[Rfam]
RNA sequence: CCGUGCUAGGUGGGGAGGUAGCGGUGCCCUAUAACUUGCAAUCCGCUCUAGCAAGACUGAAUCCCUUUUCUGAGGCCGUCCGUAUUGUAGGGUCUGCCUUUUGCACGUAGUGUUGACAUUUGGGUCCCGCGCAAUGGGAACCCAUGAACCAUGUCAGGUCCGGAAGGAAGCAGCAUUAAGUGGAAUUUCUCAUGUGCCGCGGGGUCGCCUAAAUCGAGCCAACGACAAGAGUAACGCUUAUGUGCGGCGGUCGAAGGAAGGUGCACGG
Numbered sequence: 001c002c003g004u005g006c007u008a009g010g011u012g013g014g015g016a017g018g019u020a021g022c023g024g025u026g027c028c029c030u031a032u033a034a035c036u037u038g039c040a041a042u043c044c045g046c047u048c049u050a051g052c053a054a055g056a057c058u059g060a061a062u063c064c065c066u067u068u069u070c071u072g073a074g075g076c077c078g079u080c081c082g083u084a085u086u087g088u089a090g091g092g093u094c095u096g097c098c099u100u101u102u103g104c105a106c107g108u109a110g111u112g113u114u115g116a117c118a119u120u121u122g123g124g125u126c127c128c129g130c131g132c133a134a135u136g137g138g139a140a141c142c143c144a145u146g147a148a149c150c151a152u153g154u155c156a157g158g159u160c161c162g163g164a165a166g167g168a169a170g171c172a173g174c175a176u177u178a179a180g181u182g183g184a185a186u187u188u189c190u191c192a193u194g195u196g197c198c199g200c201g202g203g204g205u206c207g208c209c210u211a212a213a214u215c216g217a218g219c220c221a222a223c224g225a226c227a228a229g230a231g232u233a234a235c236g237c238u239u240a241u242g243u244g245c246g247g248c249g250g251u252c253g254a255a256g257g258a259a260g261g262u263g264c265a266c267g268g
Stems, first nucleotide, its partner, number of pairs: 001268006009058003012030004017025001019023001035055005064261003068258004074252005081246005087241005095233002099230005107223002110219002118214008126203006132194002135192005142183004151176004159168003
The record is a 268-nucleotide RNA sequence from Sporosarcina sp. BI001-red, which matches "Bacterial large signal recognition particle RNA" in Rfam. A search with the family's covariance model found it, with a score of 223 bits. Rfam's curators write: The signal recognition particle (SRP) is a universally conserved ribonucleoprotein involved in the co-translational targeting of proteins to membranes.